[Rfam]
RNA sequence: GGCCGUUCAAUGACGCGCGCUAAGCAGGAACCGGGACUCUUCGUAUACGUAAGACAGCAGUCAGGUACCUGAAGUAGCGCGCGUUAUUCGGUCCC
Numbered sequence: 001g002g003c004c005g006u007u008c009a010a011u012g013a014c015g016c017g018c019g020c021u022a023a024g025c026a027g028g029a030a031c032c033g034g035g036a037c038u039c040u041u042c043g044u045a046u047a048c049g050u051a052a053g054a055c056a057g058c059a060g061u062c063a064g065g066u067a068c069c070u071g072a073a074g075u076a077g078c079g080c081g082c083g084u085u086a087u088u089c090g091g092u093c094c095c
Stems, first nucleotide, its partner, number of pairs: 009088004014083001016081007030066003035062004
The family of this 95-nucleotide RNA sequence from Anopheles sinensis is "mir-275 microRNA precursor family".
On this family, see Skalsky et al., BMC Genomics 2010: "Identification of microRNAs expressed in two mosquito vectors, Aedes albopictus and Culex quinquefasciatus".
The match comes from Rfam's covariance-model search (68 bits).